RNA: c-di-GMP-I riboswitch aptamer
RNA sequence: CUUUCGAAAAGCCGACCCCUUUGCGAGAAGGGUUAGGAAAGCCACGGGUCUUCCGAAAAUGAAGAUGGCCGGGUUGCCGAA
Numbered sequence: 001c002u003u004u005c006g007a008a009a010a011g012c013c014g015a016c017c018c019c020u021u022u023g024c025g026a027g028a029a030g031g032g033u034u035a036g037g038a039a040a041g042c043c044a045c046g047g048g049u050c051u052u053c054c055g056a057a058a059a060u061g062a063a064g065a066u067g068g069c070c071g072g073g074u075u076g077c078c079g080a081a
Stems, first nucleotide, its partner, number of pairs: 012037002017032006040075004045071003048066006